This 76-nucleotide sequence from Crocodylus porosus belongs to the Rfam family "Mammalian CPEB3 ribozyme". Pairs were carried over by alignment from the consensus structure, which is taken from published work. From the family's description: The mammalian CPEB3 ribozyme is a self cleaving RNA located in the second intron of the CPEB3 gene which belongs to a family of genes regulating messenger RNA polyadenylation. This ribozyme is highly conserved and found only in mammals. The CPEB3 ribozyme is structurally and biochemically related to the human hepatitis delta virus (HDV) ribozyme and the HDV ribozyme is proposed to have arisen from the human transcriptome. There is currently only one other known self cleaving ribozyme in mammals, the CoTC motif. The source organism's lineage runs through Eukaryota, Euteleostomi, Sarcopterygii, Sauropsida and Crocodylus.
[Rfam]
RNA sequence: UUUGCAGGUUUGAGGCCGCAGCAGAAGCGCGCACGGCACGGCCCUGUCAGAUGCCAGUGGAUCUGCAAAUUCAACU
Numbered sequence: 001u002u003u004g005c006a007g008g009u010u011u012g013a014g015g016c017c018g019c020a021g022c023a024g025a026a027g028c029g030c031g032c033a034c035g036g037c038a039c040g041g042c043c044c045u046g047u048c049a050g051a052u053g054c055c056a057g058u059g060g061a062u063c064u065g066c067a068a069a070u071u072c073a074a075c076u
Stems, first nucleotide, its partner, number of pairs: 012044001014043004020076002024072003027039001029037001048065005054059001